[Rfam]
RNA sequence: CAAGCAUCUUAACAGGUCCUGGUCUUUGUGUGGUAGACCAUGAUUUGGUAGCUGGUGCUGAGAUGAAAUCUCUCCUUGCAACAACUCAUUGGCUCUGCCUGUGCCAGCUGAGACUAUCAGGGAGAGAACACAC
Numbered sequence: 001c002a003a004g005c006a007u008c009u010u011a012a013c014a015g016g017u018c019c020u021g022g023u024c025u026u027u028g029u030g031u032g033g034u035a036g037a038c039c040a041u042g043a044u045u046u047g048g049u050a051g052c053u054g055g056u057g058c059u060g061a062g063a064u065g066a067a068a069u070c071u072c073u074c075c076u077u078g079c080a081a082c083a084a085c086u087c088a089u090u091g092g093c094u095c096u097g098c099c100u101g102u103g104c105c106a107g108c109u110g111a112g113a114c115u116a117u118c119a120g121g122g123a124g125a126g127a128a129c130a131c132a133c
Stems, first nucleotide, its partner, number of pairs: 003059006013047003017043002020040001023037003069127007077119002080117001085112004089107004
Dot-bracket structure: ..((((((....(((.((.(..(((.........)))..).)).)))......)))))).........(((((((.((.(....((((((((...........)))).))))....))).)))))))......
RNA: Small nucleolar RNA SNORA30/SNORA37 family